[Rfam]
RNA sequence: GAAUACUCAUCGGGGAGCUAAAUCAAUAACUGAUUUGGCUGAGAUCUUUUUUAAGAGACCCGUGAACCUGAACCAGAUAAUGCUGGCGUAGGAAUUGAGUCUGGAAUUCCC
Dot-bracket structure: .....((((.((((..(((((((((.....)))))))))......(((....)))...))))....((((..((((......))))..))))...))))............
A member of the RNA family "TPP riboswitch aptamer (THI element)" from Vibrio rumoiensis, 111 nucleotides long. NCBI's taxonomy places the organism under Bacteria, Pseudomonadati, Pseudomonadota, Vibrionales, Vibrio rumoiensis.